[Rfam]
RNA sequence: GUAUUAUCGGGAACAGUGAUUCCCAUAAUUU
Numbered sequence: 001g002u003a004u005u006a007u008c009g010g011g012a013a014c015a016g017u018g019a020u021u022c023c024c025a026u027a028a029u030u031u
Base pairs, nucleotide, nucleotide: 001031003029004028005027006026007025009024010023011022012021013020014018
Dot-bracket structure: (.(((((.((((((...).)))))))))).)